A member of the RNA family "MIR159 microRNA precursor family" from Paspalum vaginatum, 239 nucleotides long.
Rfam links the family to the GO terms miRNA-mediated post-transcriptional gene silencing and RISC complex.
The family has 66 seed sequences and 3,649 matches in Rfam 15.1.
Taxonomically the source falls in Paspalum (Eukaryota, Tracheophyta, Petrosaviidae, Paspaleae).
RNA sequence: GGAUUUGAAGCAGAGCUCCCGUCAAACCAAUGAAGGGUCGUUUUGAAGGGUGGUACAGCUGCUCGUUCAUGGUUCCCACUAUCCUAUCUCAUACGCGAGAUGUAUGCAUAGAGGUAGAGAGAGGUGAAAGGUUCAUAUAUAUUGGCUUGAGAUAGGCUUGUGGUUUGCAUGACCAAGGAGCUGCAUCGUCCCCUUGCCGGCCUAUCUUUGGUUUGAAGGGAGCUCUGCAUCUUGCUCCC
Numbered sequence: 001g002g003a004u005u006u007g008a009a010g011c012a013g014a015g016c017u018c019c020c021g022u023c024a025a026a027c028c029a030a031u032g033a034a035g036g037g038u039c040g041u042u043u044u045g046a047a048g049g050g051u052g053g054u055a056c057a058g059c060u061g062c063u064c065g066u067u068c069a070u071g072g073u074u075c076c077c078a079c080u081a082u083c084c085u086a087u088c089u090c091a092u093a094c095g096c097g098a099g100a101u102g103u104a105u106g107c108a109u110a111g112a113g114g115u116a117g118a119g120a121g122a123g124g125u126g127a128a129a130g131g132u133u134c135a136u137a138u139a140u141a142u143u144g145g146c147u148u149g150a151g152a153u154a155g156g157c158u159u160g161u162g163g164u165u166u167g168c169a170u171g172a173c174c175a176a177g178g179a180g181c182u183g184c185a186u187c188g189u190c191c192c193c194u195u196g197c198c199g200g201c202c203u204a205u206c207u208u209u210g211g212u213u214u215g216a217a218g219g220g221a222g223c224u225c226u227g228c229a230u231c232u233u234g235c236u237c238c239c
Stems, first nucleotide, its partner, number of pairs: 013225008023215007036202001059180002062177002068171004076163004